[Rfam]
RNA sequence: GCGCCCGUAGCUCAGCUGGAUAGAGCGCAGCCCUCCGGAGGCUGAGGCCAGAGGUUCAAAUCCUCUCGGGCGCG
Number, nucleotide and partner (000 for none) at each position: 001g073002c072003g071004c070005c069006c068007g067008u000009a000010g026011c025012u024013c023014a000015g000016c000017u000018g000019g000020a000021u000022a000023g013024a012025g011026c010027g000028c044029a043030g042031c041032c040033c000034u000035c000036c000037g000038g000039a000040g032041g031042c030043u029044g028045a000046g000047g000048c000049c000050a066051g065052a064053g063054g062055u000056u000057c000058a000059a000060a000061u000062c054063c053064u052065c051066u050067c007068g006069g005070g004071c003072g002073c001074g000
The record is a 74-nucleotide RNA sequence from Methylomonas paludis, which matches "tRNA" in Rfam. Rfam describes the family as follows. Transfer RNA (tRNA) molecules are approximately 80 nucleotides in length. The family's RNA type in Rfam is transfer RNA. The base pairs follow the family's consensus structure, which is taken from published work.